[Rfam]
RNA: Bacterial large signal recognition particle RNA
Organism: Alkalibacter rhizosphaerae
RNA sequence: CCGCGCUGGAUGGGGAGUUAGCGGUGCCCUGUACCUGCAAUCCGCUAUAGCAGGAUCGAUCUCCCGACCGAGGCUGCUGCUGCAAAUGUUGGUUUCGUCUCAAGCGGUGUUGAGAGCCGGGCCCUGUGCAAUAGAUACUUGUGAACCCCGUCAGGUCCGGAAGGAAGCAGCGGUAAGCGAGGACGCUAUGUGCCGCAGGUAUACCUGGUUUGAGCUGGCUGUUGCGAGGCAGUUUGUGGUGGUCGUCGACGUUGGGUGCGCGG
Dot-bracket structure: ((((((..(((((((.(((...))).))))...(((((...........)))))))).....((((((...(((.(((((((((((...((....(((..(..(((((.....((((((((.((((((((.(((.(.(((((.....((((....(((....)))....))))...)))))...))))))...))))))....))))))))..))).)).)..)))...)).))))))))))).)))...)))))).))))))